[Rfam]
RNA sequence: UUCGCGGUAUUAUUCCUGUGAAUGUUUUCCAUUUACAAUCACAGGAUAAUACUGCGAG
Numbered sequence: 001u002u003c004g005c006g007g008u009a010u011u012a013u014u015c016c017u018g019u020g021a022a023u024g025u026u027u028u029c030c031a032u033u034u035a036c037a038a039u040c041a042c043a044g045g046a047u048a049a050u051a052c053u054g055c056g057a058g
Stems, first nucleotide, its partner, number of pairs: 001058011014046007023037003
Background: The family of this 58-nucleotide sequence from Papilio xuthus is "mir-308 microRNA precursor family". NCBI's taxonomy places the organism under Eukaryota, Opisthokonta, Arthropoda, Glossata, Papilio. The family's consensus secondary structure was predicted with RNAalifold.